[Rfam]
RNA: Iron response element II
RNA sequence: UCGUAAUGGUGGCAGUGUCCACCAUUACGA
Numbered sequence: 001u002c003g004u005a006a007u008g009g010u011g012g013c014a015g016u017g018u019c020c021a022c023c024a025u026u027a028c029g030a
Stems, first nucleotide, its partner, number of pairs: 001030012013017001